[Rfam]
Shown here is a 61-nucleotide RNA from Carlito syrichta, a member of the family "U7 small nuclear RNA". NCBI's taxonomy places the organism under Eukaryota, Craniata, Primates, Haplorrhini, Carlito. The family's consensus secondary structure was predicted with PFOLD. Animal histone pre-mRNAs are spliced by a different mechanism than nuclear pre-mRNAs and self-splicing introns. This processing involves the U7 snRNP, which contains only one RNA species: U7. The 5' end of U7 RNA is thought to base-pair to a conserved spacer element downstream of the cleavage site in histone pre-mRNA. This family contains a number of annotated U7 pseudogenes.

RNA sequence: CAGUGCUGCAGCUCUUUUAGAAUUGAUCUAUCAGGCUUCCGAACCCUCCCUGGAAGCCCCC
Numbered sequence: 001c002a003g004u005g006c007u008g009c010a011g012c013u014c015u016u017u018u019a020g021a022a023u024u025g026a027u028c029u030a031u032c033a034g035g036c037u038u039c040c041g042a043a044c045c046c047u048c049c050c051u052g053g054a055a056g057c058c059c060c061c
Stems, first nucleotide, its partner, number of pairs: 034058008